Notes
Group II catalytic intron D1-D4-4: a 143-nucleotide RNA from Insulibacter thermoxylanivorax. Taxonomically the source falls in Insulibacter (Bacteria, Bacillati, Bacilli, Paenibacillaceae). The literature on the family includes a 2001 paper in Trends Genet by Bonen and Vogel, "The ins and outs of group II introns". Its family is annotated with Group II intron splicing in the Gene Ontology. From the family's description: Group II introns are found in rRNA, tRNA and mRNA of organelles in fungi, plants and protists, and also in mRNA in bacteria.
Nucleotides: 143
Stems, first nucleotide, its partner, number of pairs: 020043005051090004056081006065072002098117001101115005120136002
Number, partner (000 for none) and nucleotide at each position: 001000u002000a003000g004000c005000c006000g007000g008000u009000g010000c011000a012000a013000g014000u015000c016000c017000g018000g019000u020043c021042g022041c023040g024039g025000g026000a027000g028000g029000a030000a031000c032000c033000a034000a035000g036000u037000c038000c039024c040023c041022g042021c043020g044000c045000a046000g047000c048000u049000a050000g051090g052089a053088u054087a055000g056081c057080u058079g059078c060077g061076u062000a063000u064000a065072g066071a067000g068000a069000g070000a071066u072065c073000u074000g075000u076061g077060c078059g079058u080057a081056g082000a083000a084000g085000c086000g087054u088053a089052u090051c091000g092000a093000c094000g095000a096000a097000a098117g099000u100000a101115c102114c103113u104112g105111u106000c107000a108000g109000a110000g111105a112104c113103a114102g115101g116000g117098c118000g119000a120136g121135c122000a123000a124000c125000a126000u127000a128000c129000c130000a131000g132000g133000c134000g135121g136120u137000a138000a139000c140000a141000u142000a143000a